Nucleotides: 104
Base pairs, nucleotide, nucleotide: 006099007098008097009096010095011094012093013092020047021046022045023044049084050083051082052080053079056078057077058076062072063071
Number, partner (000 for none) and nucleotide at each position: 001000a002000g003000a004000u005000c006099c007098c008097g009096c010095g011094c012093g013092g014000g015000a016000g017000a018000g019000a020047g021046a022045g023044g024000c025000a026000c027000g028000g029000g030000c031000c032000g033000u034000g035000a036000g037000g038000c039000c040000c041000g042000g043000g044023c045022u046021u047020c048000c049084g050083c051082c052080g053079a054000a055000g056078g057077c058076g059000c060000a061000a062072c063071c064000g065000g066000c067000c068000c069000c070000c071063g072062g073000a074000a075000a076058c077057g078056c079053u080052c081000a082051g083050g084049c085000a086000g087000a088000a089000g090000g091000g092013c093012c094011g095010c096009g097008c098007g099006g100000g101000u102000a103000g104000g
Shown here is a 104-nucleotide sequence from Falsiroseomonas bella, a member of the family "Glycine riboswitch aptamer".
Taxonomically the source falls in Falsiroseomonas (Bacteria, Pseudomonadati, Alphaproteobacteria, Acetobacterales).
It scores 56 bits against the family's covariance model.